The record is a 35-nucleotide sequence from Lipotes vexillifer, which matches "Iron response element I" in Rfam. The literature on the family includes a 1987 paper in Science by Hentze et al., "Identification of the iron-responsive element for the translational regulation of human ferritin mRNA". It scores 40 bits against the family's covariance model. Pairs were carried over by alignment from the consensus structure, which is taken from published work.

RNA sequence: AUGUCUCUUGCUUCAACACUGUUUGAACGGAACAG
Dot-bracket structure: .(((.(((.(.((((((...).)))))))))))).
Numbered sequence: 001a002u003g004u005c006u007c008u009u010g011c012u013u014c015a016a017c018a019c020u021g022u023u024u025g026a027a028c029g030g031a032a033c034a035g
Stems, first nucleotide, its partner, number of pairs: 002034003006031003010028001012027005017021001